Shown here is a 64-nucleotide sequence from Lactobacillus johnsonii, a member of the family "emrB-Lactobacillus RNA".
RNA sequence: UACUUAGCAUAUUUUUAUAGUAUGCAGAUCGAAUAUAGCUAGAUAAUAGUUAAAAAAAGGGUAG
Numbered sequence: 001u002a003c004u005u006a007g008c009a010u011a012u013u014u015u016u017a018u019a020g021u022a023u024g025c026a027g028a029u030c031g032a033a034u035a036u037a038g039c040u041a042g043a044u045a046a047u048a049g050u051u052a053a054a055a056a057a058a059g060g061g062u063a064g
Base pairs, nucleotide, nucleotide: 002062003061004060005059007025008024009023010022011021012020013019036052037051038050039049040048041047